[Rfam]
RNA sequence: AUGCUGCGCGCAUGUGUUGCUGACGUCGUCAGCGCCAUGCCAGCAGCCGGGAUCCCUGGGCUGCCGCGGGAUACGUCCCGCGCGAUCCACCAGUCCGCUUCGCAUCGGUCCGCGGACGAGCGCCUUUCUGGCGCCGAUGC
Numbered sequence: 001a002u003g004c005u006g007c008g009c010g011c012a013u014g015u016g017u018u019g020c021u022g023a024c025g026u027c028g029u030c031a032g033c034g035c036c037a038u039g040c041c042a043g044c045a046g047c048c049g050g051g052a053u054c055c056c057u058g059g060g061c062u063g064c065c066g067c068g069g070g071a072u073a074c075g076u077c078c079c080g081c082g083c084g085a086u087c088c089a090c091c092a093g094u095c096c097g098c099u100u101c102g103c104a105u106c107g108g109u110c111c112g113c114g115g116a117c118g119a120g121c122g123c124c125u126u127u128c129u130g131g132c133g134c135c136g137a138u139g140c
Stems, first nucleotide, its partner, number of pairs: 011039004019033006043064006051087004065082007112140003120134005
Dot-bracket structure: ..........((((....((((((...))))))..))))...((((((..[[[[....))))))(((((((....))))))).]]]]........................(((.....(((((.....)))))...)))